[Rfam]
SAM riboswitch aptamer (S box leader): a 111-nucleotide sequence from Runella sp. SP2. The match comes from Rfam's covariance-model search (77 bits).
RNA sequence: GAUUUAUAAAGAAGAGGGGAGAGAAUAGGCUCCAUGAACCUCUGGCAACCUGUUUCAACAUACGCGGAAUAAGGUGCUAAUUCCUACCUGAGCAAUCGGGGCAUAUAAAUC
Numbered sequence: 001g002a003u004u005u006a007u008a009a010a011g012a013a014g015a016g017g018g019g020a021g022a023g024a025a026u027a028g029g030c031u032c033c034a035u036g037a038a039c040c041u042c043u044g045g046c047a048a049c050c051u052g053u054u055u056c057a058a059c060a061u062a063c064g065c066g067g068a069a070u071a072a073g074g075u076g077c078u079a080a081u082u083c084c085u086a087c088c089u090g091a092g093c094a095a096u097c098g099g100g101g102c103a104u105a106u107a108a109a110u111c
Stems, first nucleotide, its partner, number of pairs: 001111008013043005021032003026086004044078004049074002051071006082103001087100005